About this RNA: The family of this 50-nucleotide sequence from Tursiops truncatus is "Guanidine-II riboswitch aptamer (mini-ykkC)". The literature on the family includes a 2017 paper in Cell Chem Biol by Huang et al., "The Structure of the Guanidine-II Riboswitch". The family's consensus secondary structure is taken from published work.
RNA sequence: CCCACAGGACGGCCUGUGGAAGCGUCAGCUGAGCCCACAGGACGGCCUGU
Numbered sequence: 001c002c003c004a005c006a007g008g009a010c011g012g013c014c015u016g017u018g019g020a021a022g023c024g025u026c027a028g029c030u031g032a033g034c035c036c037a038c039a040g041g042a043c044g045g046c047c048u049g050u
Stems, first nucleotide, its partner, number of pairs: 002019007037050005